[Rfam]
RNA: Nuclear RNase P
Organism: Xiphophorus maculatus
RNA sequence: GUGGGAGGAAGCUCAUUGUAGAGGUCACAAACUGAGUGCUCGUCACUCUACCAAUCACCUCGGGGAAGGUCUGAGACAAGAGCCAAUGGUUGCCCUUGCAGGGUAUCACCUGAUAAAGGUGAGCGUGUGAACAGAAAACAUUGGUCAGCGCUUGCAUUUCUCACAGGAGAAACCAGGGGGAGCAAUUUCUCAGCUCGUCUGGUGGAUGUGGUGUUAGCGGCGGCUUGGAAUCACUCGCGGCUGGCAAAUGAGUGCAAUGUAUGAGGUGGGGUACAACUCCAGAACCCAAUUCAGACUACUCUCCCCCCAC
Dot-bracket structure: ((((..(((..(((((....((((.........(((((.....))))).........)))).........[[[[[.....((((......(((((.....)))))((((((.....))))))(((.(((.............(................................................................................).......))).)))))))..................))))).((((((...))))))........]]]]].......)))..))))